[Rfam]
RNA sequence: GUGGUAGAGGUUCGUAACCAUCCCUCUAUAAAAAACUAGGGAUGU
Numbered sequence: 001g002u003g004g005u006a007g008a009g010g011u012u013c014g015u016a017a018c019c020a021u022c023c024c025u026c027u028a029u030a031a032a033a034a035a036c037u038a039g040g041g042a043u044g045u
Base pairs, nucleotide, nucleotide: 006027007026008025009024010023015038016037